[Rfam]
RNA sequence: GCGGGAGGAAGCUCACUGUAGAGGUCACAUGCCGAGUGCCUGGUCACUCCACCAAUCACCUCGGGGAAGGUCUGAGACAGGAGCCAAUCGCUGCCCUAGCAGGGCAUCACCUGACGCGGGUGAGCGAGUGCACAGGGACGGGGCCCCGGGCGAGGCGCAGGCGCAGGAGAAGCCGGGCGGAGCAGUGACGCAGCUCCCCGCCGGUGGAUGCGGCCUCGCCGGGCUUGGAAACGCUCGCGGCUGGCUGUUGAGUGCGAUGUGUGAGCUGGGACACCGUCCCGGAACCCAAUUCAGACUACUCUCCUCCCGC
Number, nucleotide and partner (000 for none) at each position: 001g310002c309003g308004g307005g000006a000007g304008g303009a302010a000011g000012c265013u264014c263015a262016c261017u000018g000019u000020a000021g062022a061023g060024g059025u000026c000027a000028c000029a000030u000031g000032c000033c000034g049035a048036g047037u046038g045039c043040c000041u000042g000043g039044u000045c038046a037047c036048u035049c034050c000051a000052c000053c000054a000055a000056u000057c000058a000059c024060c023061u022062c021063g000064g000065g000066g000067a000068a000069g000070g000071u000072c294073u293074g292075a291076g290077a000078c000079a000080g000081g000082a242083g241084c240085c239086a000087a000088u000089c000090g000091c000092u106093g105094c104095c103096c102097u000098a000099g000100c000101a000102g096103g095104g094105c093106a092107u123108c122109a121110c120111c119112u118113g000114a000115c000116g000117c000118g112119g111120g110121u109122g108123a107124g238125c237126g236127a235128g234129u233130g232131c000132a000133c000134a000135g000136g000137g000138a000139c000140g000141g000142g000143g224144c223145c222146c000147c000148g000149g000150g000151c000152g000153a000154g000155g000156c000157g000158c000159a000160g000161g000162c000163g000164c000165a000166g000167g000168a000169g000170a000171a000172g000173c000174c000175g000176g000177g000178c000179g000180g000181a000182g000183c000184a000185g000186u000187g000188a000189c000190g000191c000192a000193g000194c000195u000196c000197c000198c000199c000200g000201c000202c000203g000204g000205u000206g000207g000208a000209u000210g000211c000212g000213g000214c000215c000216u000217c000218g000219c000220c000221g000222g145223g144224c143225u000226u000227g000228g000229a000230a000231a000232c130233g129234c128235u127236c126237g125238c124239g085240g084241c083242u082243g000244g000245c000246u000247g000248u000249u000250g000251a000252g000253u000254g000255c000256g000257a000258u000259g000260u000261g016262u015263g014264a013265g012266c282267u281268g280269g279270g278271a277272c276273a000274c000275c000276g272277u271278c270279c269280c268281g267282g266283a000284a000285c000286c000287c000288a000289a000290u076291u075292c074293a073294g072295a000296c000297u000298a000299c000300u000301c000302u009303c008304c007305u000306c000307c004308c003309g002310c001
About this RNA: Shown here is a 310-nucleotide sequence from Atractosteus spatula, a member of the family "Nuclear RNase P". Its family is annotated with ribonuclease P complex, tRNA processing and ribonuclease P activity in the Gene Ontology. It scores 210 bits against the family's covariance model. Ribonuclease P (RNase P) is a ubiquitous endoribonuclease, found in archaea, bacteria and eukarya as well as chloroplasts and mitochondria. Its best characterised activity is the generation of mature 5'-ends of tRNAs by cleaving the 5'-leader elements of precursor-tRNAs. Cellular RNase Ps are ribonucleoproteins.